[Rfam]
RNA sequence: GUGUCCCCUAGAGUUCUCCUGAACACUUCACUGGGGACUAUAUGGUCUUUUUUUCUCGCAAAGAAGUGAAAAUAUAUCUACUGAAGUGUUUGGGGGAACUCCUGGGCUCAU
Numbered sequence: 001g002u003g004u005c006c007c008c009u010a011g012a013g014u015u016c017u018c019c020u021g022a023a024c025a026c027u028u029c030a031c032u033g034g035g036g037a038c039u040a041u042a043u044g045g046u047c048u049u050u051u052u053u054u055c056u057c058g059c060a061a062a063g064a065a066g067u068g069a070a071a072a073u074a075u076a077u078c079u080a081c082u083g084a085a086g087u088g089u090u091u092g093g094g095g096g097a098a099c100u101c102c103u104g105g106g107c108u109c110a111u
Stems, first nucleotide, its partner, number of pairs: 006106003011101010022091002024088007032080004

A member of the RNA family "mir-395 microRNA precursor family" from Actinidia chinensis, 111 nucleotides long. The family's consensus secondary structure was predicted with PFOLD. The source organism's lineage runs through Eukaryota, Embryophyta, Spermatophyta, Actinidiaceae and Actinidia chinensis. Rfam describes the family as follows. mir-395 was identified in both Arabidopsis thaliana and Oryza sativa computationally and was later experimentally verified. mir-395 is thought to target mRNAs coding for ATP sulphurylases. The mature sequence is excised from the 3' arm of the hairpin. The family has 25 seed sequences and 2,798 matches in Rfam 15.1. A search with the family's covariance model found it, with a score of 70 bits.